[Rfam]
RNA sequence: CCCCUUUUCAGACCGUGCCCGUCCGCCUAUAUUGCGGUCGUCGGCUUCGCGCCGACUAUGGCGAUAAACGUUCGAUGAAAUAAACCUUUCGGACCCGGGGGCGGUACCCGGCGCCUCCACCAGAUCACAGCAGCGCGCCUCUUCGGAGGCGCGGUUGCGAUCUGGCGGGGGCGAAAUAGGAUCGACGAGGGCGUAAAGAUCGAAUUUUCGCUCGGCAUGGUUCCGCCGUUAUCGGGCCGUAUCAAUAGUUGCCAACGACAACUAUGCGGAAGCACGUCUCGCUGCGUAAGCAGCGCGAUCGCUUCAAUUCAAGUCCUGGGGGUUCGCACUUCUAGGCGGGGCUCGGAGGCGCCUGGCAACAGAAGCCUCCACU
Numbered sequence: 001c002c003c004c005u006u007u008u009c010a011g012a013c014c015g016u017g018c019c020c021g022u023c024c025g026c027c028u029a030u031a032u033u034g035c036g037g038u039c040g041u042c043g044g045c046u047u048c049g050c051g052c053c054g055a056c057u058a059u060g061g062c063g064a065u066a067a068a069c070g071u072u073c074g075a076u077g078a079a080a081u082a083a084a085c086c087u088u089u090c091g092g093a094c095c096c097g098g099g100g101g102c103g104g105u106a107c108c109c110g111g112c113g114c115c116u117c118c119a120c121c122a123g124a125u126c127a128c129a130g131c132a133g134c135g136c137g138c139c140u141c142u143u144c145g146g147a148g149g150c151g152c153g154g155u156u157g158c159g160a161u162c163u164g165g166c167g168g169g170g171g172c173g174a175a176a177u178a179g180g181a182u183c184g185a186c187g188a189g190g191g192c193g194u195a196a197a198g199a200u201c202g203a204a205u206u207u208u209c210g211c212u213c214g215g216c217a218u219g220g221u222u223c224c225g226c227c228g229u230u231a232u233c234g235g236g237c238c239g240u241a242u243c244a245a246u247a248g249u250u251g252c253c254a255a256c257g258a259c260a261a262c263u264a265u266g267c268g269g270a271a272g273c274a275c276g277u278c279u280c281g282c283u284g285c286g287u288a289a290g291c292a293g294c295g296c297g298a299u300c301g302c303u304u305c306a307a308u309u310c311a312a313g314u315c316c317u318g319g320g321g322g323u324u325c326g327c328a329c330u331u332c333u334a335g336g337c338g339g340g341g342c343u344c345g346g347a348g349g350c351g352c353c354u355g356g357c358a359a360c361a362g363a364a365g366c367c368u369c370c371a372c373u
Base pairs, nucleotide, nucleotide: 040056041055042054043053044052060212061211062210063209064208070205071204072203073202074201075200076199085191086190087189089188090187091186095111096110097109098108099107112173113172114171115170116169117168118167213228214227215226216225218239219238220237222236223235224234339354340353341352342351345370346369347368348367349366350365
Dot-bracket structure: .......................................(((((.......)))))...(((((.....(((((((........(((.(((...(((((.......)))))(((((((................................................)))))))............)))))).......)))))))..)))))[[[[.(((.(((]]]].....))))))...................................................................................................[[[[..((((((]]]]..........))))))...